[Rfam]
RNA sequence: UGGAUUCGAGUAGGCAAGAUGUUGGCAUAGCUGAAUGUGAUUCGAAUUCAGCUGCGCCACAUCCGGCCAGCUCGAAUGCGG
Numbered sequence: 001u002g003g004a005u006u007c008g009a010g011u012a013g014g015c016a017a018g019a020u021g022u023u024g025g026c027a028u029a030g031c032u033g034a035a036u037g038u039g040a041u042u043c044g045a046a047u048u049c050a051g052c053u054g055c056g057c058c059a060c061a062u063c064c065g066g067c068c069a070g071c072u073c074g075a076a077u078g079c080g081g
Stems, first nucleotide, its partner, number of pairs: 005076007013068003018063004023059004028054004
A member of the RNA family "mir-31 microRNA precursor family" from Trichinella spiralis, 81 nucleotides long. Rfam links the family to the GO terms RISC complex and gene silencing by miRNA. The source organism's lineage runs through Eukaryota, Eumetazoa, Ecdysozoa, Trichinellidae and Trichinella.